[Rfam]
RNA: STAXI RNA
Nucleotides: 177
Base pairs, nucleotide, nucleotide: 002017003016004015005014006013007012025046026045027044028043029042031062032061033060034059035058036057047056048055049054086107087106088105089104090103092123093122094121095120096119097118108117109116110115131153132152133151134150135149137174138173139172141171142170156167157166158165
Number, partner (000 for none) and nucleotide at each position: 001000c002017g003016u004015u005014g006013u007012c008000u009000u010000c011000g012007g013006a014005c015004a016003a017002c018000c019000a020000c021000c022000a023000a024000u025046g026045c027044u028043c029042a030000a031062u032061g033060g034059g035058u036057c037000u038000g039000u040000g041000a042029u043028g044027a045026g046025c047056g048055c049054c050000u051000u052000c053000g054049g055048g056047u057036g058035a059034c060033c061032u062031a063000g064000c065000u066000g067000u068000c069000a070000g071000u072000c073000g074000a075000c076000a077000g078000c079000c080000a081000c082000c083000a084000a085000u086107g087106a088105u089104c090103c091000a092123g093122u094121c095120a096119c097118u098000u099000g100000u101000g102000a103090g104089g105088a106087u107086c108117g109116c110115c111000u112000u113000c114000g115110g116109g117108u118097a119096g120095u121094g122093g123092c124000a125000a126000a127000a128000a129000a130000c131153g132152c133151u134150u135149c136000c137174g138173u139172a140000g141171c142170u143000u144000g145000g146000a147000a148000g149135g150134a151133a152132g153131c154000a155000c156167g157166c158165c159000g160000u161000u162000u163000a164000c165158g166157g167156u168000g169000u170142a171141g172139u173138a174137c175000a176000u177000c